[Rfam]
RNA sequence: UUGGAUGCACUAAGAGUACUUAUUCUGAAAUUGCAAUUAGUGCUUCUGUUACAUCCAUAUAGUAAAUCAGCCUUCUGAUGACUGUAAAGCUGGGAGAACCUACUUACAGACAGAUACGAGGCUAACACUU
Numbered sequence: 001u002u003g004g005a006u007g008c009a010c011u012a013a014g015a016g017u018a019c020u021u022a023u024u025c026u027g028a029a030a031u032u033g034c035a036a037u038u039a040g041u042g043c044u045u046c047u048g049u050u051a052c053a054u055c056c057a058u059a060u061a062g063u064a065a066a067u068c069a070g071c072c073u074u075c076u077g078a079u080g081a082c083u084g085u086a087a088a089g090c091u092g093g094g095a096g097a098a099c100c101u102a103c104u105u106a107c108a109g110a111c112a113g114a115u116a117c118g119a120g121g122c123u124a125a126c127a128c129u130u
Base pairs, nucleotide, nucleotide: 002057003056004055005054006053007052015044016043017042018041022037023036024035067124069123070122071121072120073119074118082109083108084107087104088101

A member of the RNA family "Small Cajal body specific RNA 8" from Araneus ventricosus, 130 nucleotides long. The match comes from Rfam's covariance-model search (57 bits). About the family: scaRNAs are a specific class of small nuclear RNAs which localise to the Cajal bodies and guide the modification of RNA polymerase II transcribed spliceosomal RNAs U1, U2, U4, U5 and U12. U92 belong to the H/ACA box class of guide RNAs as it has the predicted hairpin-hinge-hairpin-tail structure, conserved H/ACA-box motifs and is found associated with GAR1. Pairs were carried over by alignment from the consensus structure, which is taken from published work. NCBI's taxonomy places the organism under Eukaryota, Metazoa, Chelicerata, Araneidae, Araneus. A reference for the family is Darzacq et al. (2002), "Cajal body-specific small nuclear RNAs: a novel class of 2'-O-methylation and pseudouridylation guide RNAs", EMBO J. Rfam classes the family as a small Cajal body RNA.